The family of this 129-nucleotide sequence from Candidatus Methylacidiphilum fumarolicum is "Group II catalytic intron D1-D4-4". About the family: Group II introns are found in rRNA, tRNA and mRNA of organelles in fungi, plants and protists, and also in mRNA in bacteria. Pairs were carried over by alignment from the consensus structure. Gene Ontology term of the family: Group II intron splicing. It scores 56 bits against the family's covariance model.
RNA sequence: GGGUGGAAGUGAACCCCUCCCGGCAACUAUUGCUCCAGCCGGAAGCGCCUGGGGCGGCUACUGACGGCAACGCUGGUGGUCGAAGCCUCUGGGAAAAAGGCCCGGAAUAGCGGGUCAGCGAGCAAGCAG
Dot-bracket structure: ...................(((((.............))))).......(((((((((((....((....))....))))))....))))).......((((((......)))))).............